[Rfam]
RNA sequence: CGUGAAAUGAAUCACAUUCAAAUACCCCCUUUAUUUGUUUGUGAAAUUUCUCCUUUUGAUUGCGCUGAAAAAAGCUGUAUCCUUAUGGAUGCAGCUUUUUUCAAUG
Numbered sequence: 001c002g003u004g005a006a007a008u009g010a011a012u013c014a015c016a017u018u019c020a021a022a023u024a025c026c027c028c029c030u031u032u033a034u035u036u037g038u039u040u041g042u043g044a045a046a047u048u049u050c051u052c053c054u055u056u057u058g059a060u061u062g063c064g065c066u067g068a069a070a071a072a073a074g075c076u077g078u079a080u081c082c083u084u085a086u087g088g089a090u091g092c093a094g095c096u097u098u099u100u101u102c103a104a105u106g
Stems, first nucleotide, its partner, number of pairs: 002052001004050005013043004019037006067102015
Shown here is a 106-nucleotide RNA sequence from Listeria grayi, a member of the family "Listeria sRNA rli61". It is annotated as a cis-regulatory element. Taxonomically the source falls in Listeria grayi (Bacteria, Bacilli, Caryophanales, Listeriaceae). The family's consensus secondary structure was predicted with RNAalifold.